[Rfam]
RNA sequence: AACGUAUGCGACUAGGGUUCCGGCUGCCUGUGCAGUGACUGGUCCGAGAGUCGCAAUCCGGUACCUCCUUUCAGGAAAGGGCUGGACACACGGCGGGAUAAAAGCCCGGGAGGU
Number, nucleotide and partner (000 for none) at each position: 001a000002a000003c000004g000005u000006a000007u055008g054009c053010g052011a051012c050013u000014a000015g045016g044017g000018u000019u000020c042021c041022g039023g036024c035025u034026g033027c032028c000029u000030g000031u000032g027033c026034a025035g024036u023037g000038a000039c022040u000041g021042g020043u000044c016045c015046g000047a000048g000049a000050g012051u011052c010053g009054c008055a007056a000057u086058c085059c084060g083061g082062u081063a000064c000065c000066u000067c000068c000069u000070u000071u000072c000073a000074g000075g000076a000077a000078a000079g000080g000081g062082c061083u060084g059085g058086a057087c000088a000089c109090a000091c112092g000093g000094c000095g107096g106097g105098a000099u000100a000101a000102a000103a000104g000105c097106c096107c095108g000109g089110g000111a000112g091113g000114u000
Rfam assigns this 114-nucleotide sequence from Granulibacter bethesdensis to the family "Guanidine-I riboswitch aptamer". About the family: This family represents a conserved RNA structure found upstream of the ykkC and yxkD genes in Bacillus subtilis and related genes in other bacteria. The function of this family is unclear although it has been suggested that it may function to switch on efflux pumps and detoxification systems in response to harmful environmental molecules. Lineage of the source: Bacteria > Pseudomonadati > Alphaproteobacteria > Acetobacteraceae > Granulibacter bethesdensis. Gene Ontology term of the family: regulation of gene expression. The pairing is the family consensus, mapped onto this sequence.